RNA: MIR812 microRNA precursor family
Organism: Eragrostis curvula
RNA sequence: UGUAAGCAUUUUUUGACUUUUAAAGAUCACGUUUGACCAUUCGUCUUAUUCAAAAAAAUUAUAAAAAUAUUAUUUAUUUUGCUACAGUUAGUUUUAUCAUUAGACAUACUUUAAGCAUGACUUAUUUGUUUUAUGUUUUUAUAAAAAAAUUUGAAUAAGACGAACGGUCAAAUGUGAUGUUGAAAAGUCAACAAAUGCUUACA
Numbered sequence: 001u002g003u004a005a006g007c008a009u010u011u012u013u014u015g016a017c018u019u020u021u022a023a024a025g026a027u028c029a030c031g032u033u034u035g036a037c038c039a040u041u042c043g044u045c046u047u048a049u050u051c052a053a054a055a056a057a058a059u060u061a062u063a064a065a066a067a068u069a070u071u072a073u074u075u076a077u078u079u080u081g082c083u084a085c086a087g088u089u090a091g092u093u094u095u096a097u098c099a100u101u102a103g104a105c106a107u108a109c110u111u112u113a114a115g116c117a118u119g120a121c122u123u124a125u126u127u128g129u130u131u132u133a134u135g136u137u138u139u140u141a142u143a144a145a146a147a148a149a150u151u152u153g154a155a156u157a158a159g160a161c162g163a164a165c166g167g168u169c170a171a172a173u174g175u176g177a178u179g180u181u182g183a184a185a186a187g188u189c190a191a192c193a194a195a196u197g198c199u200u201a202c203a
Base pairs, nucleotide, nucleotide: 026178027177028176029175030174031173032172033171034170035169036168037167038166040164041163042162043161044160045159046158047157048156049155